[Rfam]
RNA sequence: CAGCCAUCAAGAGGGGAUGAGGGAUUCGGCCCGAUGACUCCCCGGCAACCGGCCGACCGACGGACACGGUGCCACUUCCGACUCGGCGACAGUCGACCGAGAAAGAUGAUGA
Numbered sequence: 001c002a003g004c005c006a007u008c009a010a011g012a013g014g015g016g017a018u019g020a021g022g023g024a025u026u027c028g029g030c031c032c033g034a035u036g037a038c039u040c041c042c043c044g045g046c047a048a049c050c051g052g053c054c055g056a057c058c059g060a061c062g063g064a065c066a067c068g069g070u071g072c073c074a075c076u077u078c079c080g081a082c083u084c085g086g087c088g089a090c091a092g093u094c095g096a097c098c099g100a101g102a103a104a105g106a107u108g109a110u111g112a
Base pairs, nucleotide, nucleotide: 003110005108006107007106008105013043014042015041016040017039021032022031023030026081027080028079029078044073045072046071047070049069050068051065053063054062077104082101083100084099085098086097
The record is a 112-nucleotide sequence from Microlunatus parietis, which matches "SAM riboswitch aptamer (S box leader)" in Rfam. Pairs were carried over by alignment from the consensus structure, which is taken from published work. A search with the family's covariance model found it, with a score of 74 bits.